RNA sequence: GUUGGCUAUGGUGACAUGGUCCCCACCACCAUUGGAGGCAAAAUUGUGGGCUCACUUUGUGCCAUUGCUGGUGUACUUACCAUUGCUCUGCCAGUGCCUGUCAUCGUCUCCAAC
Numbered sequence: 001g002u003u004g005g006c007u008a009u010g011g012u013g014a015c016a017u018g019g020u021c022c023c024c025a026c027c028a029c030c031a032u033u034g035g036a037g038g039c040a041a042a043a044u045u046g047u048g049g050g051c052u053c054a055c056u057u058u059g060u061g062c063c064a065u066u067g068c069u070g071g072u073g074u075a076c077u078u079a080c081c082a083u084u085g086c087u088c089u090g091c092c093a094g095u096g097c098c099u100g101u102c103a104u105c106g107u108c109u110c111c112a113a114c
Stems, first nucleotide, its partner, number of pairs: 001114002004111002008107004013102004018097001021094001037077002040074001049063003